[Rfam]
About this RNA: Streptomyces RNA 3202: a 91-nucleotide sequence from Streptomyces tagetis. A search with the family's covariance model found it, with a score of 72 bits. Lineage of the source: Bacteria > Bacillati > Actinomycetota > Actinomycetes > Streptomyces. About the family: Identified by deep sequencing of transcriptome at the end of exponential growth phase. Appears smaller on northern blot than sequencing transcript. This indicates processing step.

RNA sequence: CCACGUCCCGACGUACUCCCCCCCGGCGCCGGGACUUCCCCGAGCCGGGCCGCGGUGCCCCUCCCCCUGGGCACGGCGGCCCGGCUCUUUU
Number, nucleotide and partner (000 for none) at each position: 001c000002c000003a000004c000005g035006u034007c033008c032009c031010g030011a000012c028013g027014u026015a000016c000017u000018c000019c000020c000021c000022c000023c000024c000025g000026g014027c013028g012029c000030c010031g009032g008033g007034a006035c005036u000037u000038c000039c000040c000041c000042g087043a086044g085045c084046c083047g082048g081049g080050c079051c078052g000053c076054g000055g074056u073057g072058c071059c070060c069061c000062u000063c000064c000065c000066c000067c000068u000069g060070g059071g058072c057073a056074c055075g000076g053077c000078g051079g050080c049081c048082c047083g046084g045085c044086u043087c042088u000089u000090u000091u000